[Rfam]
RAGATH-13 RNA: a 96-nucleotide RNA from Legionella pneumophila. On this family, see Weinberg et al., Nat Chem Biol 2015: "New classes of self-cleaving ribozymes revealed by comparative genomics analysis". The sequence is in the family's curated seed alignment. NCBI's taxonomy places the organism under Bacteria, Legionellales, Legionella, Legionella pneumophila, Legionella pneumophila serogroup 1. By type it is a ribozyme.

RNA sequence: GUUGAUUUGCCCCCCUUCUUCGAGCUUUUCGGCUUUUGCCGGGUUUCAACAGAGUGUGAACCGCUCGACCAACACUAAACAAUACACAGGGCAAUU
Numbered sequence: 001g002u003u004g005a006u007u008u009g010c011c012c013c014c015c016u017u018c019u020u021c022g023a024g025c026u027u028u029u030c031g032g033c034u035u036u037u038g039c040c041g042g043g044u045u046u047c048a049a050c051a052g053a054g055u056g057u058g059a060a061c062c063g064c065u066c067g068a069c070c071a072a073c074a075c076u077a078a079a080c081a082a083u084a085c086a087c088a089g090g091g092c093a094a095u096u
Base pairs, nucleotide, nucleotide: 005096007094008093009092010091011090012089020068021067022066023065024064025063030041031040032039033038042062043061044060046059047058